The record is a 134-nucleotide RNA sequence from Eschrichtius robustus, which matches "Small nucleolar RNA SNORA69" in Rfam. Gene Ontology terms of the family: RNA processing and nucleolus. U69 is a member of the H/ACA class of small nucleolar RNAs (snoRNAs) which act as guides in the the modification of uridines to pseudouridines. The source organism's lineage runs through Eukaryota, Opisthokonta, Artiodactyla, Cetacea and Eschrichtius. By type it is an H/ACA-box small nucleolar RNA. The family has 16 seed sequences and 808 matches in Rfam 15.1.
[Rfam]
Nucleotides: 134
Base pairs, nucleotide, nucleotide: 003057004056005055006054007053008052018044019043020042021041022040023039024038026036069127070126071125072124073123074122075121076120077119078118084112085111086110087109088108089107090106091105092104093103094102095101
Number, partner (000 for none) and nucleotide at each position: 001000a002000a003057a004056g005055c006054a007053g008052g009000u010000u011000g012000c013000a014000a015000u016000u017000a018044c019043a020042g021041u022040g023039c024038u025000c026036c027000c028000g029000u030000u031000u032000c033000g034000u035000g036026g037000a038024a039023g040022u041021a042020c043019u044018g045000a046000c047000a048000u049000a050000a051000u052008c053007c054006u055005g056004c057003u058000g059000a060000a061000a062000g063000a064000a065000a066000a067000u068000c069127u070126g071125u072124g073123u074122u075121g076120a077119u078118c079000a080000u081000u082000u083000u084112u085111g086110a087109u088108u089107u090106u091105a092104c093103c094102u095101u096000u097000u098000a099000u100000g101095g102094g103093g104092g105091u106090a107089a108088a109087a110086u111085c112084a113000u114000g115000g116000c117000a118078g119077a120076u121075c122074g123073a124072c125071a126070u127069g128000a129000a130000c131000a132000u133000u134000u